[Rfam]
RNA sequence: CACCCUCCGUGUUCACGGCGGACCUUGAUUUAAUUUUAUACAAUUAAGGCACGCGGUGAAUGCCAAGGGAG
Numbered sequence: 001c002a003c004c005c006u007c008c009g010u011g012u013u014c015a016c017g018g019c020g021g022a023c024c025u026u027g028a029u030u031u032a033a034u035u036u037u038a039u040a041c042a043a044u045u046a047a048g049g050c051a052c053g054c055g056g057u058g059a060a061u062g063c064c065a066a067g068g069g070a071g
Base pairs, nucleotide, nucleotide: 003069004068005067006066009063010062011061012060013059014058015057016056018054019053020052023049024048025047026046027045028044029043030042

Rfam assigns this 71-nucleotide sequence from Chiloscyllium punctatum to the family "mir-124 microRNA precursor family". A search with the family's covariance model found it, with a score of 83 bits. Its family is annotated with RISC complex and miRNA-mediated post-transcriptional gene silencing in the Gene Ontology. The organism belongs to Chiloscyllium, within Eukaryota. The family has 122 seed sequences and 2,215 matches in Rfam 15.1.